Nucleotides: 095
Stems, first nucleotide, its partner, number of pairs: 001094007010047003049065005071087005
Number, partner (000 for none) and nucleotide at each position: 001094g002093c003092g004091g005090c006089a007088g008000u009000a010047g011046c012045u013000c014000a015000g016000u017000u018000g019000g020000u021000c022000a023000c024000u025000u026000u027000u028000a029000a030000u031000c032000c033000g034000c035000a036000g037000g038000a039000u040000u041000a042000a043000a044000a045012g046011g047010c048000a049065u050064c051063a052062g053061c054000u055000u056000c057000c058000c059000a060000a061053g062052c063051u064050g065049a066000g067000g068000g069000u070000c071087g072086c073085g074084g075083g076000u077000u078000c079000g080000a081000a082000u083075c084074c085073c086072g087071u088007u089006u090005g091004c092003c093002g094001c095000u